[Rfam]
RNA sequence: AGCUUUGCACAGUGGCAGUAUCAUAGCCAAUGAGGUUUAUCCAAGGUGCAAUUAUUGCUAAUUGAAAACUUUUCCCAAUACCCCGCUAUGACAACUUGAAAUAUGAUUGGCACUGGCAAUUUUUGACAGUCUCUAUGGAGA
Numbered sequence: 001a002g003c004u005u006u007g008c009a010c011a012g013u014g015g016c017a018g019u020a021u022c023a024u025a026g027c028c029a030a031u032g033a034g035g036u037u038u039a040u041c042c043a044a045g046g047u048g049c050a051a052u053u054a055u056u057g058c059u060a061a062u063u064g065a066a067a068a069c070u071u072u073u074c075c076c077a078a079u080a081c082c083c084c085g086c087u088a089u090g091a092c093a094a095c096u097u098g099a100a101a102u103a104u105g106a107u108u109g110g111c112a113c114u115g116g117c118a119a120u121u122u123u124u125g126a127c128a129g130u131c132u133c134u135a136u137g138g139a140g141a
Stems, first nucleotide, its partner, number of pairs: 020052002024048001026047003034042002085117003089112002092109003096105001130141004
The family of this 141-nucleotide RNA from Aotus nancymaae is "U4 spliceosomal RNA".
Rfam describes the family as follows. U4 small nuclear RNA (U4 snRNA) is a component of the major U2-dependent spliceosome.
The family's RNA type in Rfam is spliceosomal small nuclear RNA.
The source organism's lineage runs through Eukaryota, Metazoa, Tetrapoda, Platyrrhini and Aotus.
The base pairs follow the family's consensus structure, which is taken from published work.